RNA sequence: GUUACCAAACAAGCCUACCUCCUCCCGGGCUUGUUUGAAUUUGGCGGCGACAUUUUUCCUCCUCCCUAAUGUCGUCGCCCUUU
Numbered sequence: 001g002u003u004a005c006c007a008a009a010c011a012a013g014c015c016u017a018c019c020u021c022c023u024c025c026c027g028g029g030c031u032u033g034u035u036u037g038a039a040u041u042u043g044g045c046g047g048c049g050a051c052a053u054u055u056u057u058c059c060u061c062c063u064c065c066c067u068a069a070u071g072u073c074g075u076c077g078c079c080c081u082u083u
Stems, first nucleotide, its partner, number of pairs: 007036010045077010